A member of the RNA family "Bacterial large subunit ribosomal RNA" from Mycoplasma suis, 447 nucleotides of a longer RNA. The family has 102 seed sequences and 51,934 matches in Rfam 15.1. Rfam's curators put it in the seed alignment.
Nucleotides: 447
Base pairs, nucleotide, nucleotide: 001388002387003386004385005384006383011024012023013022014021015020026131027129028128029127030126031125032124038122039119040118041117042116043115044114045113046112047111048110053105054103055102059099060098061097063095064094065093066092070088071087072085073084074083075082135160136159137158138157139156140155143152144151165176166175167174180351181350182349183348185347186346187345191341192340193339200338201337202336203335204334205333206332218312219311222309223308224307225306226305227304228303231300239296240295241294242293243292245269246268247267250264251263252262270274275290279288280287352378353377354376355375356374358372359371360370361369362368389442391439392438393437394436395435396434397433398432399431400430407426408425409424410423411422413420414419
Number, partner (000 for none) and nucleotide at each position: 001388u002387u003386u004385g005384u006383c007000g008000a009000u010000a011024u012023a013022g014021u015020u016000u017000u018000a019000g020015g021014a022013c023012u024011a025000g026131c027129g028128u029127c030126a031125a032124a033000u034000a035000a036000a037000u038122u039119g040118a041117u042116g043115a044114u045113u046112g047111g048110a049000g050000g051000u052000a053105a054103a055102g056000c057000a058000c059099u060098a061097a062000a063095u064094c065093u066092a067000u068000a069000a070088g071087g072085g073084c074083a075082c076000u077000u078000c079000g080000c081000u082075g083074u084073g085072u086000a087071c088070u089000a090000a091000a092066u093065a094064g095063a096000a097061u098060u099059a100000a101000a102055c103054u104000c105053u106000g107000a108000a109000u110048u111047c112046c113045a114044g115043u116042c117041a118040u119039u120000u121000u122038a123000c124032u125031u126030u127029g128028g129027c130000a131026g132000u133000g134000a135160g136159a137158c138157u139156a140155u141000u142000u143152g144151g145000g146000a147000u148000a149000a150000g151144c152143u153000u154000u155140a156139u157138a158137g159136u160135c161000g162000u163000g164000a165176g166175g167174g168000a169000a170000a171000g172000a173000g174167c175166c176165c177000a178000g179000a180351c181350c182349a183348a184000c185347a186346a187345a188000u189000a190000a191341g192340g193339u194000c195000c196000c197000u198000a199000a200338a201337u202336u203335a204334a205333g206332c207000u208000a209000a210000g211000u212000g213000g214000a215000a216000a217000a218312g219311g220000a221000a222309g223308u224307c225306a226305a227304a228303a229000u230000u231300c232000a233000u234000a235000a236000a237000c238000a239296a240295c241294u242293a243292g244000g245269a246268u247267g248000u249000u250264g251263g252262c253000u254000u255000a256000g257000a258000a259000g260000c261000a262252g263251c264250c265000a266000u267247c268246a269245u270274u271000u272000a273000a274270a275290g276000a277000g278000u279288g280287c281000g282000u283000a284000a285000u286000a287280g288279c289000u290275c291000a292243c293242u294241a295240g296239u297000c298000u299000a300231g301000u302000u303228u304227u305226u306225u307224g308223g309222c310000g311219c312218c313000g314000c315000a316000a317000g318000u319000a320000u321000a322000a323000c324000g325000g326000g327000g328000c329000u330000a331000a332206g333205c334204u335203u336202a337201a338200u339193a340192c341191c342000g343000a344000a345187u346186u347185u348183u349182u350181g351180g352378a353377u354376u355375c356374a357000a358372a359371a360370u361369u362368u363000u364000u365000u366000a367000a368362a369361g370360a371359u372358u373000a374356u375355g376354a377353g378352u379000g380000g381000u382000a383006g384005a385004c386003a387002a388001a389442u390000g391439u392438u393437g394436u395435a396434u397433a398432a399431g400430g401000g402000u403000u404000g405000a406000a407426g408425u409424u410423u411422g412000a413420g414419c415000g416000a417000g418000a419414g420413c421000a422411c423410a424409g425408a426407u427000g428000g429000a430400c431399u432398u433397u434396a435395u436394a437393c438392a439391a440000g441000u442389a443000a444000g445000a446000a447000u

The organism belongs to Mycoplasma suis, within Bacteria.